Rfam assigns this 74-nucleotide RNA from Chitinivorax tropicus to the family "R1162-like plasmid antisense RNA".
The organism belongs to Chitinivorax, within Bacteria.
Gene Ontology term of the family: plasmid copy number maintenance.
Rfam describes the family as follows. The copy-number of the broad host-range plasmid R1162 is controlled by the amounts of two proteins, encoded by cotranscribed genes comprising a region of the plasmid called RepI. RepI is negatively regulated by a 75 base RNA that is complementary to a segment of the RepI message.
The match comes from Rfam's covariance-model search (85 bits).
The base pairs follow the family's consensus structure, which was predicted with PFOLD.
RNA sequence: CGGCGCAGGCCGGGGAUUGCAGCCCCGGCAGCGCCUAACCAAAACCGUUCUACACAGGAGAACAGCAUGGCUUU
Numbered sequence: 001c002g003g004c005g006c007a008g009g010c011c012g013g014g015g016a017u018u019g020c021a022g023c024c025c026c027g028g029c030a031g032c033g034c035c036u037a038a039c040c041a042a043a044a045c046c047g048u049u050c051u052a053c054a055c056a057g058g059a060g061a062a063c064a065g066c067a068u069g070g071c072u073u074u
Stems, first nucleotide, its partner, number of pairs: 002035005009029007039070003047063005053057001